[Rfam]
RNA: Makes More Granules Regulator RNA (mmgR)
RNA sequence: CGCCUCUGCCCUUCCUGGGCGUUUCCUCCCUAAUGAACUGCCCGGCUUUCGAGCCGGGCUUUUUUUUGGCCUGA
Numbered sequence: 001c002g003c004c005u006c007u008g009c010c011c012u013u014c015c016u017g018g019g020c021g022u023u024u025c026c027u028c029c030c031u032a033a034u035g036a037a038c039u040g041c042c043c044g045g046c047u048u049u050c051g052a053g054c055c056g057g058g059c060u061u062u063u064u065u066u067u068g069g070c071c072u073g074a
Stems, first nucleotide, its partner, number of pairs: 008020004040059008